[Rfam]
RNA sequence: GGCCCGUCUCUUGCUCCACCCCCUCCACAGGUAGCCAACGGCGGUUGCCCGACUGAACGACAAAGGCGUCGC
Dot-bracket structure: .............................(((((((......))))))).......................
The family of this 72-nucleotide RNA sequence from Aquipseudomonas alcaligenes is "narK RNA".
By type it is a cis-regulatory element.
The source organism's lineage runs through Bacteria, Gammaproteobacteria, Pseudomonadales, Aquipseudomonas and Aquipseudomonas alcaligenes.
Rfam's curators put it in the seed alignment.
The base pairs follow the family's consensus structure, which is taken from published work.